[Rfam]
RNA sequence: ACUCCCGUUGCGGGAGAGCGCAUGAACAUCGUGCCGCCGAAGGCGUAACCCACCCGGAAUCGCUCAGGCAAAAGGACCGCAACAACCGG
Dot-bracket structure: ......(((((((......((((.......)))).(((((..(((...((.....))...))))).))).......)))))))......
Numbered sequence: 001a002c003u004c005c006c007g008u009u010g011c012g013g014g015a016g017a018g019c020g021c022a023u024g025a026a027c028a029u030c031g032u033g034c035c036g037c038c039g040a041a042g043g044c045g046u047a048a049c050c051c052a053c054c055c056g057g058a059a060u061c062g063c064u065c066a067g068g069c070a071a072a073a074g075g076a077c078c079g080c081a082a083c084a085a086c087c088g089g
Stems, first nucleotide, its partner, number of pairs: 007083007020034004036069003039065002043063003049057002
A member of the RNA family "Glycine riboswitch aptamer" from Thiobacillus sp., 89 nucleotides long. The source organism's lineage runs through Bacteria, Pseudomonadota, Nitrosomonadales, Thiobacillaceae and Thiobacillus.